Shown here is a 70-nucleotide RNA from Anolis carolinensis, a member of the family "mir-8/mir-141/mir-200 microRNA precursor family". The family is grouped with related families in Rfam's "mir-8 microRNA precursor clan". Pairs were carried over by alignment from the consensus structure, which was predicted with RNAalifold.
[Rfam]
RNA sequence: AUCGCUGUCUUACCAGACAAAGUUAGAUCUUAGCUAUCCCCGUCUAAUACUGUCUGGUAAUGCCGUCGAU
Numbered sequence: 001a002u003c004g005c006u007g008u009c010u011u012a013c014c015a016g017a018c019a020a021a022g023u024u025a026g027a028u029c030u031u032a033g034c035u036a037u038c039c040c041c042g043u044c045u046a047a048u049a050c051u052g053u054c055u056g057g058u059a060a061u062g063c064c065g066u067c068g069a070u
Base pairs, nucleotide, nucleotide: 002069003068004067006065007064009062010060011059012058013057014056015055016054017053018052019051022048023047024046025045026044027043